The record is a 50-nucleotide RNA from Cereibacter changlensis, which matches "Guanidine-II riboswitch aptamer (mini-ykkC)" in Rfam.
Rfam links the family to the GO term regulation of gene expression.
Simpler in structure and has fewer highly conserved nucleotide positions than the ykkC-yxkD leader.
For this family Rfam cites "Identification of 22 candidate structured RNAs in bacteria using the CMfinder comparative genomics pipeline" (Weinberg et al., Nucleic Acids Res, 2007).
A search with the family's covariance model found it, with a score of 38 bits.

RNA sequence: CGGAGAGGACGACCUCCCCCCGCAACGGGGCACCGCUCGGGACGGCCCGG
Numbered sequence: 001c002g003g004a005g006a007g008g009a010c011g012a013c014c015u016c017c018c019c020c021c022g023c024a025a026c027g028g029g030g031c032a033c034c035g036c037u038c039g040g041g042a043c044g045g046c047c048c049g050g
Stems, first nucleotide, its partner, number of pairs: 002019002005016004037050005